[Rfam]
RNA sequence: GGGCUUGACUGGAUUUGACAGCGAGUUGGAGUGGUAUGUAAGCAUGCAGUGCGUCGGUGAUUGGCACUAUAAUCUCAGUUAUCAAAAUUUUAUCUGGCAACGAAAAUUACGCUCUCGCUGCUUAAUCGAAGUAUAGUAGAUUAACUUUAUUUCUGCCAUAGUGGUAGAAACGAGAUGUCACUCAAAAGCUCUUGUUCCGAAGCGUUUGGUAAAGUGGCACAGCAAAUUCGGGAAUAGUUUGAGACUUUCCUCGCAUCUCUCACGAAAUUUUAGAGGAUAAGGUAUAGAUUGGUGGCUUCGGUCUUGUCUAUACACGAAAAUUCAGGCGAAGAUAAGCAUGUAGAAAGCGUAUGGCUUCCUCGUUUGGACGAGGGUUCGACUCCCUCCAGGUCCACUA
Numbered sequence: 001g002g003g004c005u006u007g008a009c010u011g012g013a014u015u016u017g018a019c020a021g022c023g024a025g026u027u028g029g030a031g032u033g034g035u036a037u038g039u040a041a042g043c044a045u046g047c048a049g050u051g052c053g054u055c056g057g058u059g060a061u062u063g064g065c066a067c068u069a070u071a072a073u074c075u076c077a078g079u080u081a082u083c084a085a086a087a088u089u090u091u092a093u094c095u096g097g098c099a100a101c102g103a104a105a106a107u108u109a110c111g112c113u114c115u116c117g118c119u120g121c122u123u124a125a126u127c128g129a130a131g132u133a134u135a136g137u138a139g140a141u142u143a144a145c146u147u148u149a150u151u152u153c154u155g156c157c158a159u160a161g162u163g164g165u166a167g168a169a170a171c172g173a174g175a176u177g178u179c180a181c182u183c184a185a186a187a188g189c190u191c192u193u194g195u196u197c198c199g200a201a202g203c204g205u206u207u208g209g210u211a212a213a214g215u216g217g218c219a220c221a222g223c224a225a226a227u228u229c230g231g232g233a234a235u236a237g238u239u240u241g242a243g244a245c246u247u248u249c250c251u252c253g254c255a256u257c258u259c260u261c262a263c264g265a266a267a268u269u270u271u272a273g274a275g276g277a278u279a280a281g282g283u284a285u286a287g288a289u290u291g292g293u294g295g296c297u298u299c300g301g302u303c304u305u306g307u308c309u310a311u312a313c314a315c316g317a318a319a320a321u322u323c324a325g326g327c328g329a330a331g332a333u334a335a336g337c338a339u340g341u342a343g344a345a346a347g348c349g350u351a352u353g354g355c356u357u358c359c360u361c362g363u364u365u366g367g368a369c370g371a372g373g374g375u376u377c378g379a380c381u382c383c384c385u386c387c388a389g390g391u392c393c394a395c396u397a
Stems, first nucleotide, its partner, number of pairs: 001393007019366002021363005030356003034352006043340005048068005056083007113175005119169001121167001176219006183208004188203003195232003199228001240262005248277005282313008291303002296331002300327001370386005

transfer-messenger RNA: a 397-nucleotide sequence from Phocaeicola massiliensis. The family's RNA type in Rfam is non-coding RNA gene. Gene Ontology term of the family: RNA catabolic process. For this family Rfam cites "Phylogenetic analysis of tmRNA secondary structure" (Williams and Bartel, RNA, 1996). The match comes from Rfam's covariance-model search (124 bits).